[Rfam]
RNA sequence: AGGAAACAACCACAGUGGCCGAGGCCAGCUCAGGAGCCCUGGAGUCAGGUCCCGCAGUAGCUCGGGAGCUCUCCGUCUGCAGGGCCUGGAGGCUCCGGGGCGGG
Numbered sequence: 001a002g003g004a005a006a007c008a009a010c011c012a013c014a015g016u017g018g019c020c021g022a023g024g025c026c027a028g029c030u031c032a033g034g035a036g037c038c039c040u041g042g043a044g045u046c047a048g049g050u051c052c053c054g055c056a057g058u059a060g061c062u063c064g065g066g067a068g069c070u071c072u073c074c075g076u077c078u079g080c081a082g083g084g085c086c087u088g089g090a091g092g093c094u095c096c097g098g099g100g101c102g103g104g
Stems, first nucleotide, its partner, number of pairs: 002096003007088002010084002017077003021074001023072002027070005034063002039057003
RNA: mir-8834 microRNA precursor family
Organism: Canis lupus